[Rfam]
RNA sequence: AGCAGAGUAAGAAAACAAGCGUUAAGUGUUUAGAACACGGGGAGUUGGUUCUAAAACGAAAAGGAAACGAAACUUGCGAUUGGUUUUCUGCAUCCCGCUGUU
Numbered sequence: 001a002g003c004a005g006a007g008u009a010a011g012a013a014a015a016c017a018a019g020c021g022u023u024a025a026g027u028g029u030u031u032a033g034a035a036c037a038c039g040g041g042g043a044g045u046u047g048g049u050u051c052u053a054a055a056a057c058g059a060a061a062a063g064g065a066a067a068c069g070a071a072a073c074u075u076g077c078g079a080u081u082g083g084u085u086u087u088c089u090g091c092a093u094c095c096c097g098c099u100g101u102u
Stems, first nucleotide, its partner, number of pairs: 001102005010089007018081002020078003026057002029055008040095003044091001061075003